RNA sequence: CAACUUCAUGGCGAUGGAGUUCGCCCUAACCGCCGCAGCCACGUUGCUGCGUGCUGAUAACUCCUGCCGACAC
Numbered sequence: 001c002a003a004c005u006u007c008a009u010g011g012c013g014a015u016g017g018a019g020u021u022c023g024c025c026c027u028a029a030c031c032g033c034c035g036c037a038g039c040c041a042c043g044u045u046g047c048u049g050c051g052u053g054c055u056g057a058u059a060a061c062u063c064c065u066g067c068c069g070a071c072a073c
Stems, first nucleotide, its partner, number of pairs: 010025004016064006032054002034051006
Description: Fluoride riboswitch aptamer (crcB RNA motif): a 73-nucleotide RNA from Candidatus Korobacter versatilis. The source organism's lineage runs through Bacteria, Pseudomonadati, Acidobacteriota, Terriglobales and Candidatus Korobacter versatilis.